This 353-nucleotide part of an RNA from Amaricoccus macauensis belongs to the Rfam family "Bacterial small subunit ribosomal RNA".
RNA sequence: GGCGUAAAGCGCACGUAGGCGGACCAUCAAGUUGGGGGUGAAAUCCCGGGGCUCAACCCCGGAACUGCCUCCAAAACUGCUGGUCUGGAGUUCGAGAGAGGCGAGUGGAAUUCCGAGUGUAGAGGUGAAAUUCGUAGAUAUUCGGAGGAACACCAGUGGCGAAGGCGGCUCGCUGGCUCGAUACUGACGCUGAGGUGCGAAAGCGUGGGGAGCAAACAGGAUUAGAUACCCUGGUAGUCCACGCCGUAAACGAUGAGAGCUAGACGUCGGGCGGCUUGCCGUUCGGUGUCGCAGUUAACGCAUUAAGCUCUCCGCCUGGGGAGUACGGCCGCAAGGUUAAAACUCAAAGGAAU
Numbered sequence: 001g002g003c004g005u006a007a008a009g010c011g012c013a014c015g016u017a018g019g020c021g022g023a024c025c026a027u028c029a030a031g032u033u034g035g036g037g038g039u040g041a042a043a044u045c046c047c048g049g050g051g052c053u054c055a056a057c058c059c060c061g062g063a064a065c066u067g068c069c070u071c072c073a074a075a076a077c078u079g080c081u082g083g084u085c086u087g088g089a090g091u092u093c094g095a096g097a098g099a100g101g102c103g104a105g106u107g108g109a110a111u112u113c114c115g116a117g118u119g120u121a122g123a124g125g126u127g128a129a130a131u132u133c134g135u136a137g138a139u140a141u142u143c144g145g146a147g148g149a150a151c152a153c154c155a156g157u158g159g160c161g162a163a164g165g166c167g168g169c170u171c172g173c174u175g176g177c178u179c180g181a182u183a184c185u186g187a188c189g190c191u192g193a194g195g196u197g198c199g200a201a202a203g204c205g206u207g208g209g210g211a212g213c214a215a216a217c218a219g220g221a222u223u224a225g226a227u228a229c230c231c232u233g234g235u236a237g238u239c240c241a242c243g244c245c246g247u248a249a250a251c252g253a254u255g256a257g258a259g260c261u262a263g264a265c266g267u268c269g270g271g272c273g274g275c276u277u278g279c280c281g282u283u284c285g286g287u288g289u290c291g292c293a294g295u296u297a298a299c300g301c302a303u304u305a306a307g308c309u310c311u312c313c314g315c316c317u318g319g320g321g322a323g324u325a326c327g328g329c330c331g332c333a334a335g336g337u338u339a340a341a342a343c344u345c346a347a348a349g350g351a352a353u
Stems, first nucleotide, its partner, number of pairs: 001316003009313001011198004016192001018191003022085005028079001030078002032074009046062006089185003092181005100174007107151001111147008122133003159166002203244006212238002217233004255312006263290012294301002318345003327338004